[Rfam]
RNA sequence: GAAACACCUAUGGAGCAGGACUUCCUUCAGUGGGGAUUUGGUGCUCACUGAGUCUGCUCCUUGAGUGUGUCACU
Numbered sequence: 001g002a003a004a005c006a007c008c009u010a011u012g013g014a015g016c017a018g019g020a021c022u023u024c025c026u027u028c029a030g031u032g033g034g035g036a037u038u039u040g041g042u043g044c045u046c047a048c049u050g051a052g053u054c055u056g057c058u059c060c061u062u063g064a065g066u067g068u069g070u071c072a073c074u
Stems, first nucleotide, its partner, number of pairs: 001071002004068002007065001009063002012060006019054003027051008035042001